[Rfam]
RNA sequence: AAAGCAGGUUGCAAUUACAGUGCUUCAUUUUGUGGAAGUACUGCCAUUAUCCUGCUGAAAGAAAAUCUUAUGUUGGUCAUUUUGAUUUUGCCUUUAUGAGGGUAAAAUCAUGACAGGCUUACAUGGACAGUU
Numbered sequence: 001a002a003a004g005c006a007g008g009u010u011g012c013a014a015u016u017a018c019a020g021u022g023c024u025u026c027a028u029u030u031u032g033u034g035g036a037a038g039u040a041c042u043g044c045c046a047u048u049a050u051c052c053u054g055c056u057g058a059a060a061g062a063a064a065a066u067c068u069u070a071u072g073u074u075g076g077u078c079a080u081u082u083u084g085a086u087u088u089u090g091c092c093u094u095u096a097u098g099a100g101g102g103u104a105a106a107a108u109c110a111u112g113a114c115a116g117g118c119u120u121a122c123a124u125g126g127a128c129a130g131u132u
Base pairs, nucleotide, nucleotide: 003056004055005054006053007052008051018043019042020041021040022039023038024037025036026035067126069125070124071123072122073121075119076118077117078116083110084109085108086107087106088105089104090103091102092101093100094099